[Rfam]
RNA sequence: CUGUAGGGCCAACGACGGUCGGCGACGGUGAGCGCCUCGUCGCCGAUGUGGUCGCCGUCGGCGAAGGUGCCGAGCACGGUGGCGUCGCCGUACCGACCGGUGCCGAUCCUGUCGACCUUGCCGUGCGCGACCAGGUACACCUCGUUGAUCUCGCGGCCCUGCUCUAUCAGCAACUCGCCUGCCGCGAAGUCCCGUUGGACGAACCGGCCGGCCAGCUCGGCGAGCAGCGCGUCGUCCUCGAAGCCGCGCAGCACCGGCACCUCGCGCAGCGUGGGCGGCACGACCGAGACCUGGCGACCGGUCUGCGCGAAGCUCACCCGGCCCCGGCCCACCGCGUACGACAGCCGCCGGUUCACCCGGUAGGUGCCGCCGGACACCUCGACCCAGGGCAGUGCGCGCAGCAGCCAGCGAUUGCUGAUCUCCUGCAUCUGCGGCGCCGACUUGGUGGUCGACGCGAGAUUCUUGGCGGCCGCCACCGAGAGGCUGCUCUGCGGCCUCGUCUGG
Dot-bracket structure: ..((.(((.....(..(((.(((..(..((.(.(((..(((((((...(..((((((.((((......(....(.(((((......))))).)...)....)))).....((.(.((...(.(((..(((...(..((....((.....(..((.(..............).....))..)...))..)))...)))..)..)).)...)).).)).))))))..)...(...(((.((...(.(.((..((..((......))....)).)).)).).).)))...)...))))))).))).).)).)..))).).))..)(.((......)).)........(((.(((..((((.....))))))).)))....))).)).(((((.(.((....(.(.......)).....)).).))))).....((((.(((((.((.((.......)).))..))..)))..))))((.(((..(((((.....))))))))..)).
RNA: Saccharopolyspora sRNA 350
Organism: Kitasatospora griseola